Overview: The record is a 135-nucleotide RNA from Phyllostomus discolor, which matches "Small nucleolar RNA SNORA48" in Rfam. For this family Rfam cites "Mapping to nucleotide resolution of pseudouridine residues in large subunit ribosomal RNAs from representative eukaryotes, prokaryotes, archaebacteria, mitochondria and chloroplasts" (Ofengand and Bakin, J Mol Biol, 1997). About the family: The snoRNA ACA 48 has been identified to guide pseudouridylation of the residue U3797 in the 28S rRNA subunit.

RNA sequence: UAUCCCUGGCCUGGGUAAGUUGCUCCUGGUGUGAUGGUGCUUAUCUCAUAUCAAUCAGGGACAAAGUAACUCGCAGUUUAGCCCAGCUCGGCUUUCAGUCUAUGCCUGUGCCUGGUUCAUGUCCUGGACACAACU
Numbered sequence: 001u002a003u004c005c006c007u008g009g010c011c012u013g014g015g016u017a018a019g020u021u022g023c024u025c026c027u028g029g030u031g032u033g034a035u036g037g038u039g040c041u042u043a044u045c046u047c048a049u050a051u052c053a054a055u056c057a058g059g060g061a062c063a064a065a066g067u068a069a070c071u072c073g074c075a076g077u078u079u080a081g082c083c084c085a086g087c088u089c090g091g092c093u094u095u096c097a098g099u100c101u102a103u104g105c106c107u108g109u110g111c112c113u114g115g116u117u118c119a120u121g122u123c124c125u126g127g128a129c130a131c132a133a134c135u
Stems, first nucleotide, its partner, number of pairs: 001063001003061006012053003018046002022040002025037002076129005090123003098117001100115003104111002